[Rfam]
The family of this 358-nucleotide RNA from Leuconostoc carnosum is "transfer-messenger RNA". The family's consensus secondary structure is taken from published work. NCBI's taxonomy places the organism under Bacteria, Bacillati, Lactobacillaceae, Leuconostoc, Leuconostoc carnosum.
RNA sequence: GGGGCCGUUUUUGGAAUUCGACGGGUUGUUUAGGGCAGGGACUGCGUUUCGCCAUCCGGGCGUAAAGCGGGCAGACAUUUUAACUGCAAAAAACGAAAACACUUUCGCAGUUGCUGCUUAAAAAACAGUAACGCGUAACUUAGUCUUGGUUGCUGACAUCUAGGAUUAGGUCAUAAAAGGUCAGAUCGUAUACUUGUUUAAAUCUGGAGCAAUUAUAUUAAAUUAAUCAGGUUAGUGAUUAAUAUUAGCCUUGUUUUGUGGCGUGAUUAAUCAUGAAAUUUAAAUGACAAAGCUAUAAGCGUAGAUGUUUCUGUACCGGGCGGUCUGGACAGGGGUUCGACUCCCCUCGGCUCCAUUC
Numbered sequence: 001g002g003g004g005c006c007g008u009u010u011u012u013g014g015a016a017u018u019c020g021a022c023g024g025g026u027u028g029u030u031u032a033g034g035g036c037a038g039g040g041a042c043u044g045c046g047u048u049u050c051g052c053c054a055u056c057c058g059g060g061c062g063u064a065a066a067g068c069g070g071g072c073a074g075a076c077a078u079u080u081u082a083a084c085u086g087c088a089a090a091a092a093a094c095g096a097a098a099a100c101a102c103u104u105u106c107g108c109a110g111u112u113g114c115u116g117c118u119u120a121a122a123a124a125a126c127a128g129u130a131a132c133g134c135g136u137a138a139c140u141u142a143g144u145c146u147u148g149g150u151u152g153c154u155g156a157c158a159u160c161u162a163g164g165a166u167u168a169g170g171u172c173a174u175a176a177a178a179g180g181u182c183a184g185a186u187c188g189u190a191u192a193c194u195u196g197u198u199u200a201a202a203u204c205u206g207g208a209g210c211a212a213u214u215a216u217a218u219u220a221a222a223u224u225a226a227u228c229a230g231g232u233u234a235g236u237g238a239u240u241a242a243u244a245u246u247a248g249c250c251u252u253g254u255u256u257u258g259u260g261g262c263g264u265g266a267u268u269a270a271u272c273a274u275g276a277a278a279u280u281u282a283a284a285u286g287a288c289a290a291a292g293c294u295a296u297a298a299g300c301g302u303a304g305a306u307g308u309u310u311c312u313g314u315a316c317c318g319g320g321c322g323g324u325c326u327g328g329a330c331a332g333g334g335g336u337u338c339g340a341c342u343c344c345c346c347u348c349g350g351c352u353c354c355a356u357u358c
Base pairs, nucleotide, nucleotide: 001354002353003352004351005350006349007348022327023326024325025324026323027322028321029320030319031318033316035314036313037312038311039310040309041308042307045301046300047299048298049297050062051061052060053059055071056070057069058068110132111131112130113129114128115127116126141165145164146163147162148161149160153184154183155182156181157180188218189217190216191215192214194212195211196210202233204231205230207228235274236273237272238271239270240269241268242267243266248262249261250260253293254292255291256290257287331347332346333345334344335343
Rfam's curators write: Bacterial tmRNA, also known as 10Sa RNA or SsrA, is named for its dual tRNA and mRNA-like properties. Its role is to liberate the mRNA from a stalled ribosome. To accomplish this part of the tmRNA is used as a reading frame that ends in a translation stop signal. The broken mRNA is replaced in the ribosome by the tmRNA and translation of the tmRNA leads to addition of a proteolysis tag to the incomplete protein enabling recognition by a protease.
By type it is a non-coding RNA gene.